[Rfam]
RNA sequence: CCGUGCUAGGCGGGGAGGUAGCGGUGCCCUGUACCCACAAUCCGCUAUAGUGGGGUCGAAUUCCCUCCAGAGGUCUUUUCCCUGUGAGGACUGACUUUGGUAAGUGGUGACGAUAAUCGGGUCCUGCGCAAUGAAAACUUUCGAACCCCGUCAGGUCCGGGAGGAAGCAGCGGUAAGGAAGCCCUUUCAUGUGCCGCGGGGGAGCCUGAUUGGAGCUAACUGCCAUCGUAACGCUCGGAGGGUCAGAUCGACGGAGGGUGCACGG
Numbered sequence: 001c002c003g004u005g006c007u008a009g010g011c012g013g014g015g016a017g018g019u020a021g022c023g024g025u026g027c028c029c030u031g032u033a034c035c036c037a038c039a040a041u042c043c044g045c046u047a048u049a050g051u052g053g054g055g056u057c058g059a060a061u062u063c064c065c066u067c068c069a070g071a072g073g074u075c076u077u078u079u080c081c082c083u084g085u086g087a088g089g090a091c092u093g094a095c096u097u098u099g100g101u102a103a104g105u106g107g108u109g110a111c112g113a114u115a116a117u118c119g120g121g122u123c124c125u126g127c128g129c130a131a132u133g134a135a136a137a138c139u140u141u142c143g144a145a146c147c148c149c150g151u152c153a154g155g156u157c158c159g160g161g162a163g164g165a166a167g168c169a170g171c172g173g174u175a176a177g178g179a180a181g182c183c184c185u186u187u188c189a190u191g192u193g194c195c196g197c198g199g200g201g202g203a204g205c206c207u208g209a210u211u212g213g214a215g216c217u218a219a220c221u222g223c224c225a226u227c228g229u230a231a232c233g234c235u236c237g238g239a240g241g242g243u244c245a246g247a248u249c250g251a252c253g254g255a256g257g258g259u260g261c262a263c264g265g
Stems, first nucleotide, its partner, number of pairs: 001265006009057003012030004017025001019023001034054005063258006072249005080242004085237004092230002098225004104220002106217003114212009123200006129191002132189005138181005148173004156165003
Bacterial large signal recognition particle RNA: a 265-nucleotide sequence from Tepidanaerobacter syntrophicus. A reference for the family is Rosenblad et al. (2003), "SRPDB: Signal Recognition Particle Database", Nucleic Acids Res. Clan: SRP clan. It scores 226 bits against the family's covariance model. By type it is a non-coding RNA gene. The family's consensus secondary structure is taken from published work. Rfam's curators write: The signal recognition particle (SRP) is a universally conserved ribonucleoprotein involved in the co-translational targeting of proteins to membranes.